Shown here is a 124-nucleotide sequence from Reichenbachiella faecimaris, a member of the family "SAM riboswitch aptamer (S box leader)". The organism belongs to Reichenbachiella, within Bacteria. From the family's description: The SAM riboswitch is found upstream of a number of genes which code for proteins involved in methionine or cysteine biosynthesis in Gram-positive bacteria.
[Rfam]
RNA sequence: CACUUAUCAAGAAAGACCGAGGGACUGGGCCCGUUGACGUCUUGGCAACAUAUCCAAAGCCGCAAUACUGGAUGUUGUGCCAACUCCCAUUCUGAAUGAAUCAUCAUUUAGAAAAAGAUAGGUU
Dot-bracket structure: .(((((((....(((((...(((..[[[[)))......)))))((((.((.((((..............))))..))))))...(]]]](((((((((......)))))))))..)))))))).